The family of this 311-nucleotide RNA sequence from Candidatus Korarchaeum cryptofilum is "Archaeal signal recognition particle RNA". Lineage of the source: Archaea > Candidatus Korarchaeia > Candidatus Korarchaeales > Candidatus Korarchaeum > Candidatus Korarchaeum cryptofilum. Rfam links the family to the GO terms SRP-dependent cotranslational protein targeting to membrane, signal sequence recognition and signal recognition particle, plasma membrane targeting. The literature on the family includes a 2002 paper in Curr Opin Struct Biol by Wild et al., "Towards the structure of the mammalian signal recognition particle". The family's RNA type in Rfam is non-coding RNA gene.

RNA sequence: CGGUGGGGUAGGACCGGGGGGGUAGCCGUCCCCUCAACCGGAAGGCUAAUGCCGGGGUCAGUAACUCCCGGGGGCGAGUUGAUGGUAGGGGGUCCCUAUCUCCUCCUAGCCGAUGAACCUCGGUCCCGGUGGACCGGCGGUGGUGAUAACCCAUCCGGAGGGAUGGGGAAUCACCUUUACCACCGAACCGGGUCAGGCCCGGAAGGGAGCAGCCCUAAGGUGGACGUUCGGUGCUGCCGGGUAACUGGGGGAAGGGUAUGGGGAGAACAGGGAAACUCGAUCCAUCAACUCCACCUCGGGGGAGCCCACCG
Numbered sequence: 001c002g003g004u005g006g007g008g009u010a011g012g013a014c015c016g017g018g019g020g021g022g023u024a025g026c027c028g029u030c031c032c033c034u035c036a037a038c039c040g041g042a043a044g045g046c047u048a049a050u051g052c053c054g055g056g057g058u059c060a061g062u063a064a065c066u067c068c069c070g071g072g073g074g075c076g077a078g079u080u081g082a083u084g085g086u087a088g089g090g091g092g093u094c095c096c097u098a099u100c101u102c103c104u105c106c107u108a109g110c111c112g113a114u115g116a117a118c119c120u121c122g123g124u125c126c127c128g129g130u131g132g133a134c135c136g137g138c139g140g141u142g143g144u145g146a147u148a149a150c151c152c153a154u155c156c157g158g159a160g161g162g163a164u165g166g167g168g169a170a171u172c173a174c175c176u177u178u179a180c181c182a183c184c185g186a187a188c189c190g191g192g193u194c195a196g197g198c199c200c201g202g203a204a205g206g207g208a209g210c211a212g213c214c215c216u217a218a219g220g221u222g223g224a225c226g227u228u229c230g231g232u233g234c235u236g237c238c239g240g241g242u243a244a245c246u247g248g249g250g251g252a253a254g255g256g257u258a259u260g261g262g263g264a265g266a267a268c269a270g271g272g273a274a275a276c277u278c279g280a281u282c283c284a285u286c287a288a289c290u291c292c293a294c295c296u297c298g299g300g301g302g303a304g305c306c307c308a309c310c311g
Stems, first nucleotide, its partner, number of pairs: 001311007009303001012059004016034006038055004065302009076291005082285002086280001088278003093273004099266007107258002110255002118250007125241008133232004137227003140177001142175006150167007180223005190215004198207003